[Rfam]
A member of the RNA family "Small nucleolar RNA SNORA40" from Nannospalax galili, 123 nucleotides long.
Its family is annotated with nucleolus and RNA processing in the Gene Ontology.
For this family Rfam cites "Mapping to nucleotide resolution of pseudouridine residues in large subunit ribosomal RNAs from representative eukaryotes, prokaryotes, archaebacteria, mitochondria and chloroplasts" (Ofengand and Bakin, J Mol Biol, 1997).
Lineage of the source: Eukaryota > Opisthokonta > Mammalia > Boreoeutheria > Nannospalax.
About the family: The snoRNA ACA 40 belongs to the H/ACA family of snoRNAs and guides the pseudouridylation of 28S rRNA subunit at position U4565. NB This family has a high threshold value to exclude a large number of closely related sequences that do not appear to have conserved H and ACA boxes, and may be pseudogenes.

RNA sequence: UGCCUUGUGUGUGUUUAUUCCACUGAUGGGCAAAGGAAUGAAAGACAAGUGCAAAAAUAAAUCCUCUUUGCAAUCCUGAGCUCAUGUGCAGUAUGAGUUUUGAUACAUACAUGAAGGACUUUA
Numbered sequence: 001u002g003c004c005u006u007g008u009g010u011g012u013g014u015u016u017a018u019u020c021c022a023c024u025g026a027u028g029g030g031c032a033a034a035g036g037a038a039u040g041a042a043a044g045a046c047a048a049g050u051g052c053a054a055a056a057a058u059a060a061a062u063c064c065u066c067u068u069u070g071c072a073a074u075c076c077u078g079a080g081c082u083c084a085u086g087u088g089c090a091g092u093a094u095g096a097g098u099u100u101u102g103a104u105a106c107a108u109a110c111a112u113g114a115a116g117g118a119c120u121u122u123a
Base pairs, nucleotide, nucleotide: 001053002052003051004049005048006047007046008045010043014034015033016032018030023028061120064117065116067114068113069111070110076102078100079099080098081097082096083095084094085093
Dot-bracket structure: ((((((((.(...(((.(....(....).).)))........).))))).))).......(..((.((((.....(.((((((((.......)))))))).).......)).)).))..)...